The record is a 98-nucleotide RNA sequence from Legionella shakespearei, which matches "Alpha operon ribosome binding site" in Rfam. Taxonomically the source falls in Legionella shakespearei (Bacteria, Pseudomonadota, Legionellales, Legionellaceae). Pairs were carried over by alignment from the consensus structure, which is taken from published work. The bacterial alpha operon ribosome binding site is surrounded by this complex pseudoknotted structure. Translation of the mRNA produces 4 ribosomal protein products, one of which (S4) acts as a translational repressor by binding to the nested pseudoknot region. The mechanism of repression is thought to involve a conformational switch in the pseudoknot region and ribosome entrapment. Gene Ontology term of the family: ribosome binding. For this family Rfam cites "Translational repression of the Escherichia coli alpha operon mRNA: importance of an mRNA conformational switch and a ternary entrapment complex" (Schlax et al., J Biol Chem, 2001).

[Rfam]
RNA sequence: UUAUUUUAUAGAAAUAGUAUUCUUCUGUCCCUUUCGACAGAACAAAAUAACGUUCGGAGAAGCUAAUGGCUCGUAUUGCAGGAGUGAACAUACCUGAC
Dot-bracket structure: (((((((.(...........[[[..[[......{{{.....).))))))).....................]]......]]]............}}}.